[Rfam]
RNA sequence: UUUUUUAGGGAAAGGUUGGCCUUCCCGCAGCGGGAGGCCAGGCAACUUUGUG
Dot-bracket structure: ........(.((((.((((((((((......))))))))))....)))).).
HIV Ribosomal frameshift signal: a 52-nucleotide sequence from Lentivirus simimdef.
Rfam links the family to the GO term viral translational frameshifting.
This family represents the HIV Ribosomal frameshift signal.
It is annotated as a frameshift element.
Pairs were carried over by alignment from the consensus structure, which is taken from published work.